Fluoride riboswitch aptamer (crcB RNA motif): a 64-nucleotide sequence from Delftia acidovorans.
A reference for the family is Zhao et al. (2017), "An excited state underlies gene regulation of a transcriptional riboswitch", Nat Chem Biol.
The sequence is in the family's curated seed alignment.
NCBI's taxonomy places the organism under Bacteria, Burkholderiales, Comamonadaceae, Delftia, Delftia acidovorans.
RNA sequence: CUGCACGAUGGGAAUGGAGCUUCCCGAAACCUCCCUGCGAAGGGCUGAUGGCUCCUGCCUUGGU
Numbered sequence: 001c002u003g004c005a006c007g008a009u010g011g012g013a014a015u016g017g018a019g020c021u022u023c024c025c026g027a028a029a030c031c032u033c034c035c036u037g038c039g040a041a042g043g044g045c046u047g048a049u050g051g052c053u054c055c056u057g058c059c060u061u062g063g064u
Base pairs, nucleotide, nucleotide: 010025011024012023013022016055017054018053019052020051021050033044034043035042